Small nucleolar RNA U2-30: a 64-nucleotide RNA from Catagonus wagneri.
On this family, see Tycowski et al., Curr Biol 2004: "Guide RNAs with 5' Caps and Novel Box C/D snoRNA-like Domains for Modification of snRNAs in Metazoa".
Rfam classes the family as a C/D-box small nucleolar RNA.
The source organism's lineage runs through Eukaryota, Bilateria, Boreoeutheria, Artiodactyla and Catagonus.

[Rfam]
RNA sequence: GAGCGAUGAUGAAAAAGGCUUUACUCCUGACCUUUAUGAAGUUUCUACACUUGAUCUGAGCUCA
Numbered sequence: 001g002a003g004c005g006a007u008g009a010u011g012a013a014a015a016a017g018g019c020u021u022u023a024c025u026c027c028u029g030a031c032c033u034u035u036a037u038g039a040a041g042u043u044u045c046u047a048c049a050c051u052u053g054a055u056c057u058g059a060g061c062u063c064a
Stems, first nucleotide, its partner, number of pairs: 001063004014035005020029001